[Rfam]
RNA sequence: AUACGAUAAAGGCAAAACUAAUGAAAAUUAGUGACGCAAAGCUAAAUGGGCUAAGGCGAAUUGUUCGCUAUGCCUGCCAGUUACCAAA
Number, nucleotide and partner (000 for none) at each position: 001a000002u000003a000004c000005g000006a000007u000008a000009a000010a000011g000012g037013c036014a000015a000016a000017a032018c031019u030020a029021a028022u027023g000024a000025a000026a000027a022028u021029u020030a019031g018032u017033g000034a000035c000036g013037c012038a000039a000040a082041g081042c080043u079044a000045a000046a000047u000048g077049g074050g073051c072052u000053a000054a000055g000056g068057c067058g066059a065060a000061u000062u000063g000064u000065u059066c058067g057068c056069u000070a000071u000072g051073c050074c049075u000076g000077c048078c000079a043080g042081u041082u040083a000084c000085c000086a000087a000088a000
c-di-GMP-I riboswitch aptamer: an 88-nucleotide sequence from Paenibacillus sp. yr247. The family's consensus secondary structure is taken from published work.